The record is an 85-nucleotide RNA from Leptobrachium leishanense, which matches "mir-15 microRNA precursor family" in Rfam. Lineage of the source: Eukaryota > Sarcopterygii > Dipnotetrapodomorpha > Batrachia > Leptobrachium. This family represents the related mir-15a and mir-15b sequences. In humans miR-15a and miR-16 are clustered within 0.5 kb at 13q14. This region has been shown to be deleted in more than half of B cell chronic lymphocytic leukaemias (CLL). Both miR-15a and miR-16 are deleted or down-regulated in more than two thirds of CLL cases. The family's consensus secondary structure was predicted with RNAalifold. A search with the family's covariance model found it, with a score of 71 bits.
RNA sequence: GUUGGCGGUGCUUUAGCAGCACGUAAAUAUUGGAGUGAACUAGCACAUUUUCCAAUAUUAACAGUGCUGCUAGAGUAAAGCUGAC
Numbered sequence: 001g002u003u004g005g006c007g008g009u010g011c012u013u014u015a016g017c018a019g020c021a022c023g024u025a026a027a028u029a030u031u032g033g034a035g036u037g038a039a040c041u042a043g044c045a046c047a048u049u050u051u052c053c054a055a056u057a058u059u060a061a062c063a064g065u066g067c068u069g070c071u072a073g074a075g076u077a078a079a080g081c082u083g084a085c
Base pairs, nucleotide, nucleotide: 001085002084003083004082005081006080013073014072015071016070017069018068019067020066021065022064024061026059027058028057029056030055031054032053033052034051035050